RNA sequence: UGCACAGAGGAUGAUCAUCAAAAGGGACUUAAUACUGAAGAGUGUGAUGUUUCUUUGUUCUGAUGUGC
Numbered sequence: 001u002g003c004a005c006a007g008a009g010g011a012u013g014a015u016c017a018u019c020a021a022a023a024g025g026g027a028c029u030u031a032a033u034a035c036u037g038a039a040g041a042g043u044g045u046g047a048u049g050u051u052u053c054u055u056u057g058u059u060c061u062g063a064u065g066u067g068c
Stems, first nucleotide, its partner, number of pairs: 002068005
The record is a 68-nucleotide RNA sequence from Chiloscyllium punctatum, which matches "Small nucleolar RNA SNORD82" in Rfam.
Pairs were carried over by alignment from the consensus structure, which was predicted with PFOLD.
Rfam links the family to the GO terms RNA processing and nucleolus.
snoRNA U82 or Z25 is found in both humans and mice.